Purine riboswitch aptamer: a 102-nucleotide sequence from Pullulanibacillus pueri. Pairs were carried over by alignment from the consensus structure, which is taken from published work.
[Rfam]
RNA sequence: AAUGACAUAUGGAUAAUUACUCGUAUAAUCUUGGAAAUACGGUCCAAAAGUUUCUACCAAACUACCGAAAAUGGUUUGACUACGAGAAGCAUUAGAGGUCUA
Number, nucleotide and partner (000 for none) at each position: 001a000002a000003u000004g000005a000006c000007a000008u000009a000010u000011g000012g000013a000014u000015a000016a000017u000018u088019a000020c086021u085022c084023g083024u082025a081026u000027a000028a000029u049030c000031u047032u046033g045034g044035a043036a000037a000038u000039a000040c000041g000042g000043u035044c034045c033046a032047a031048a000049a029050g000051u000052u000053u000054c000055u000056a000057c000058c078059a077060a076061a075062c074063u073064a072065c000066c000067g000068a000069a000070a000071a000072u064073g063074g062075u061076u060077u059078g058079a000080c000081u025082a024083c023084g022085a021086g020087a000088a018089g000090c000091a000092u000093u000094a000095g000096a000097g000098g000099u000100c000101u000102a000

The match comes from Rfam's covariance-model search (84 bits). Gene Ontology term of the family: purine nucleobase biosynthetic process.